This 78-nucleotide RNA from Prunus yedoensis belongs to the Rfam family "MIR473 microRNA precursor family". The base pairs follow the family's consensus structure, which was predicted with WAR.
RNA sequence: UUUGUUCACUCUCCCUAAUGGCUUCGAGUUCGUCAUUUCUGACAUUGCUAGAAGCCUUUGAGGGAGAGUGAGCAACAA
Numbered sequence: 001u002u003u004g005u006u007c008a009c010u011c012u013c014c015c016u017a018a019u020g021g022c023u024u025c026g027a028g029u030u031c032g033u034c035a036u037u038u039c040u041g042a043c044a045u046u047g048c049u050a051g052a053a054g055c056c057u058u059u060g061a062g063g064g065a066g067a068g069u070g071a072g073c074a075a076c077a078a
Stems, first nucleotide, its partner, number of pairs: 006071010016060003020056006